[Rfam]
RNA sequence: GAGGGAGGCAGUUAAGACUUGCAGUGAUGUUUAGAGAAAUGACACAUGAACAUCACUUUAAGUCUGUGCUGGCUCCU
Numbered sequence: 001g002a003g004g005g006a007g008g009c010a011g012u013u014a015a016g017a018c019u020u021g022c023a024g025u026g027a028u029g030u031u032u033a034g035a036g037a038a039a040u041g042a043c044a045c046a047u048g049a050a051c052a053u054c055a056c057u058u059u060a061a062g063u064c065u066g067u068g069c070u071g072g073c074u075c076c077u
Base pairs, nucleotide, nucleotide: 015065016064017063018062019061020060021059024056025055026054027053028052029051030050031049032048033047
A member of the RNA family "mir-499 microRNA precursor family" from Cyprinus carpio, 77 nucleotides long. Its family is annotated with RISC complex and miRNA-mediated post-transcriptional gene silencing in the Gene Ontology. NCBI's taxonomy places the organism under Eukaryota, Chordata, Ostariophysi, Cyprinidae, Cyprinus. Rfam 15.1 lists 710 matches to the family in 635 species.